[Rfam]
RNA: Nitrogen stress-induced RNA 1
RNA sequence: GGGUAGAUGCACCCUGGUUUUUAGCCUAGAUGUUUGUUCUAGGGUUUUUUUAU
Numbered sequence: 001g002g003g004u005a006g007a008u009g010c011a012c013c014c015u016g017g018u019u020u021u022u023a024g025c026c027u028a029g030a031u032g033u034u035u036g037u038u039c040u041a042g043g044g045u046u047u048u049u050u051u052a053u
Stems, first nucleotide, its partner, number of pairs: 002013003023045001025043006